[Rfam]
RNA: Ribosomal protein L10 leader
Organism: Isachenkonia alkalipeptolytica
RNA sequence: ACAAAUGUGAAUAUUUUGCCGGAGACAGUAGGUGCGAAAGCUUAAUUUCCUACUUAGGCUUUGAAUAUAAGAAACUCAAAGACCUUUUAUGUCCUCCGGACGGUAAAAGGUCUUUUUCAAUUUCAAG
Numbered sequence: 001a002c003a004a005a006u007g008u009g010a011a012u013a014u015u016u017u018g019c020c021g022g023a024g025a026c027a028g029u030a031g032g033u034g035c036g037a038a039a040g041c042u043u044a045a046u047u048u049c050c051u052a053c054u055u056a057g058g059c060u061u062u063g064a065a066u067a068u069a070a071g072a073a074a075c076u077c078a079a080a081g082a083c084c085u086u087u088u089a090u091g092u093c094c095u096c097c098g099g100a101c102g103g104u105a106a107a108a109g110g111u112c113u114u115u116u117u118c119a120a121u122u123u124c125a126a127g
Stems, first nucleotide, its partner, number of pairs: 028053005034041002081112010